[Rfam]
RNA sequence: UGGUGGCUCGCUGCAGGUAACAGCAUCUCCACUGGAACACACACACAGCUUCCACAUGGAGUUGCUGUUACAUCCAGUGAGCAC
Numbered sequence: 001u002g003g004u005g006g007c008u009c010g011c012u013g014c015a016g017g018u019a020a021c022a023g024c025a026u027c028u029c030c031a032c033u034g035g036a037a038c039a040c041a042c043a044c045a046c047a048g049c050u051u052c053c054a055c056a057u058g059g060a061g062u063u064g065c066u067g068u069u070a071c072a073u074c075c076a077g078u079g080a081g082c083a084c
Stems, first nucleotide, its partner, number of pairs: 011077003017071008027061005033054003

This 84-nucleotide sequence from Myripristis murdjan belongs to the Rfam family "mir-194 microRNA precursor family". The family's consensus secondary structure was predicted with RNAalifold. For this family Rfam cites "New microRNAs from mouse and human" (Lagos-Quintana et al., RNA, 2003). The source organism's lineage runs through Eukaryota, Bilateria, Clupeocephala, Myripristinae and Myripristis.